Rfam assigns this 171-nucleotide RNA sequence from Kyrpidia spormannii to the family "glmS glucosamine-6-phosphate activated ribozyme aptamer". Rfam links the family to the GO terms catalytic activity and regulation of gene expression. It is annotated as a riboswitch. The organism belongs to Kyrpidia, within Bacteria. It scores 111 bits against the family's covariance model.
RNA sequence: CUUGACGUGAAAGCGCCUGGACUGUCCGGGGAACGGGUUGAAAGCGGACAGUUGACGAGGGGGAGGUUCAUCGAACCAUUCGGCGGAUGCCUCCCGGCGUAUCCUGUCGCCGUGACGAAAGGGGAAAAACCUUUGGCGACAAAGGCAAUAAAGACCUUUCGAACAGGAAGU
Numbered sequence: 001c002u003u004g005a006c007g008u009g010a011a012a013g014c015g016c017c018u019g020g021a022c023u024g025u026c027c028g029g030g031g032a033a034c035g036g037g038u039u040g041a042a043a044g045c046g047g048a049c050a051g052u053u054g055a056c057g058a059g060g061g062g063g064a065g066g067u068u069c070a071u072c073g074a075a076c077c078a079u080u081c082g083g084c085g086g087a088u089g090c091c092u093c094c095c096g097g098c099g100u101a102u103c104c105u106g107u108c109g110c111c112g113u114g115a116c117g118a119a120a121g122g123g124g125a126a127a128a129a130c131c132u133u134u135g136g137c138g139a140c141a142a143a144g145g146c147a148a149u150a151a152a153g154a155c156c157u158u159u160c161g162a163a164c165a166g167g168a169a170g171u
Base pairs, nucleotide, nucleotide: 020053021052022051023050024049025048026047027046062094063093064092065091066090071083072082073081074080095112096111097110098109099108116161117160118159119158120157121156122155130145131144132143133142134141135140